A member of the RNA family "tRNA" from Tequatrovirus T4, 74 nucleotides long. The source organism's lineage runs through Viruses, Duplodnaviria, Caudoviricetes, Pantevenvirales and Tequatrovirus. Rfam's curators write: Transfer RNA (tRNA) molecules are approximately 80 nucleotides in length. Their secondary structure includes four short double-helical elements and three loops (D, anti-codon, and T loops). Further hydrogen bonds mediate the characteristic L-shaped molecular structure. tRNAs have two regions of fundamental functional importance: the anti-codon, which is responsible for specific mRNA codon recognition, and the 3' end, to which the tRNAs corresponding amino acid is attached (by aminoacyl-tRNA synthetases). tRNAs cope with the degeneracy of the genetic code in two manners: having more than one tRNA (with a specific anti-codon) for a particular amino acid; and 'wobble' base-pairing, i.e. permitting non-standard base-pairing at the 3rd anti-codon position. The family's consensus secondary structure is taken from published work.
[Rfam]
RNA sequence: CUCCGUGUAGCUCAGUUUGGUAGAGCGCCUGAUUUGGGAUCAGGAGGUCCAAGGUUCAAAUCCUUGUAUGGAGA
Numbered sequence: 001c002u003c004c005g006u007g008u009a010g011c012u013c014a015g016u017u018u019g020g021u022a023g024a025g026c027g028c029c030u031g032a033u034u035u036g037g038g039a040u041c042a043g044g045a046g047g048u049c050c051a052a053g054g055u056u057c058a059a060a061u062c063c064u065u066g067u068a069u070g071g072a073g074a
Base pairs, nucleotide, nucleotide: 001073002072003071004070005069006068007067010026011025012024013023028044029043030042031041032040050066051065052064053063054062